[Rfam]
RNA: Bacteroidete tryptophan peptide leader RNA
Organism: Bacteroides fluxus
RNA sequence: GUCAAAAACAAAAAAAGACAAUGAAAACAAGAUUCGUAAAUACAUAUUGGUGGUGGCACCCGUUACAACUCCGGCAGUCGUAAGGGAGCAGUGCUCGUAUGUAUAUAUGUAAUAUAUUAUAAGGAAUAAGAAAGAGCCCUGUC
Numbered sequence: 001g002u003c004a005a006a007a008a009c010a011a012a013a014a015a016a017g018a019c020a021a022u023g024a025a026a027a028c029a030a031g032a033u034u035c036g037u038a039a040a041u042a043c044a045u046a047u048u049g050g051u052g053g054u055g056g057c058a059c060c061c062g063u064u065a066c067a068a069c070u071c072c073g074g075c076a077g078u079c080g081u082a083a084g085g086g087a088g089c090a091g092u093g094c095u096c097g098u099a100u101g102u103a104u105a106u107a108u109g110u111a112a113u114a115u116a117u118u119a120u121a122a123g124g125a126a127u128a129a130g131a132a133a134g135a136g137c138c139c140u141g142u143c
Stems, first nucleotide, its partner, number of pairs: 036108003040104008049095004056089002059086003066080001068078003